Overview
A member of the RNA family "Small Cajal body specific RNA 8" from Mizuhopecten yessoensis, 131 nucleotides long. The family has 22 seed sequences and 955 matches in Rfam 15.1. The source organism's lineage runs through Eukaryota, Bilateria, Protostomia, Bivalvia and Mizuhopecten. The literature on the family includes a 2002 paper in EMBO J by Darzacq et al., "Cajal body-specific small nuclear RNAs: a novel class of 2'-O-methylation and pseudouridylation guide RNAs". Rfam classes the family as a small Cajal body RNA. From the family's description: scaRNAs are a specific class of small nuclear RNAs which localise to the Cajal bodies and guide the modification of RNA polymerase II transcribed spliceosomal RNAs U1, U2, U4, U5 and U12.

[Rfam]
Nucleotides: 131
Stems, first nucleotide, its partner, number of pairs: 002060006020047004028039003071124006084110003089105001091103002
Number, partner (000 for none) and nucleotide at each position: 001000u002060g003059g004058a005057a006056g007055u008000a009000c010000c011000u012000u013000c014000a015000g016000a017000u018000a019000c020047a021046c022045a023044g024000u025000a026000c027000u028039g029038u030037c031000a032000u033000g034000c035000u036000u037030g038029a039028c040000c041000u042000u043000g044023c045022u046021g047020u048000c049000a050000c051000u052000c053000a054000g055007a056006c057005u058004u059003c060002c061000u062000a063000g064000a065000u066000c067000a068000a069000u070000a071124u072123g073122c074121c075120u076119u077000c078000u079000g080000a081000u082000g083000a084110c085109u086108g087000c088000a089105a090000u091103g092102u093000a094000u095000c096000g097000a098000g099000a100000a101000a102092a103091c104000c105089u106000u107000g108086c109085a110084g111000a112000c113000a114000g115000a116000u117000a118000c119076g120075a121074g122073g123072c124071g125000g126000a127000c128000a129000a130000c131000u
A search with the family's covariance model found it, with a score of 69 bits.